Overview
This 69-nucleotide sequence from Mauremys mutica belongs to the Rfam family "mir-302 microRNA precursor family". A reference for the family is Suh et al. (2004), "Human embryonic stem cells express a unique set of microRNAs", Dev Biol. Taxonomically the source falls in Mauremys (Eukaryota, Eumetazoa, Deuterostomia, Amniota). The match comes from Rfam's covariance-model search (76 bits).
RNA sequence: CCACUACUUUAAUGUGGAAGUACUUGCUUUGCUCCUGAUAAAGUAAGUGCUUCCAUGUUUUAGUGAUGG
Numbered sequence: 001c002c003a004c005u006a007c008u009u010u011a012a013u014g015u016g017g018a019a020g021u022a023c024u025u026g027c028u029u030u031g032c033u034c035c036u037g038a039u040a041a042a043g044u045a046a047g048u049g050c051u052u053c054c055a056u057g058u059u060u061u062a063g064u065g066a067u068g069g
Stems, first nucleotide, its partner, number of pairs: 001069003005065004011059018